Shown here is a 102-nucleotide RNA from Metabacillus indicus, a member of the family "Purine riboswitch aptamer".

[Rfam]
RNA sequence: AAUAACUUCAUACGUUUUCCUUAUAUAAUCAUGGAGAUAUGGUCCAUAAGUUUCUACCUGGCAGCCUUAAAGUGCCGGACUAUAGGGAAAGUAAGAACGGAU
Numbered sequence: 001a002a003u004a005a006c007u008u009c010a011u012a013c014g015u016u017u018u019c020c021u022u023a024u025a026u027a028a029u030c031a032u033g034g035a036g037a038u039a040u041g042g043u044c045c046a047u048a049a050g051u052u053u054c055u056a057c058c059u060g061g062c063a064g065c066c067u068u069a070a071a072g073u074g075c076c077g078g079a080c081u082a083u084a085g086g087g088a089a090a091g092u093a094a095g096a097a098c099g100g101a102u
Stems, first nucleotide, its partner, number of pairs: 018088008029049001031047005058078006

Gene Ontology term of the family: purine nucleobase biosynthetic process. The source organism's lineage runs through Bacteria, Bacillati, Bacillota, Caryophanales and Metabacillus.